The record is a 68-nucleotide RNA, which matches "RAGATH-18 RNA" in Rfam. Pairs were carried over by alignment from the consensus structure, which is taken from published work.
RNA sequence: CCUUUGGAGCGUUAUAGAAAACAAGAGUAGUUAGUUAAACGAUGAAAUUGGACGCAAUGAAAAAGGAA
Numbered sequence: 001c002c003u004u005u006g007g008a009g010c011g012u013u014a015u016a017g018a019a020a021a022c023a024a025g026a027g028u029a030g031u032u033a034g035u036u037a038a039a040c041g042a043u044g045a046a047a048u049u050g051g052a053c054g055c056a057a058u059g060a061a062a063a064a065g066g067a068a
Stems, first nucleotide, its partner, number of pairs: 001066005009055005022050003030043003034040002
Rfam describes the family as follows. Actinobacteria, Firmicutes, Fusobacteria, Thermotogae (1 example).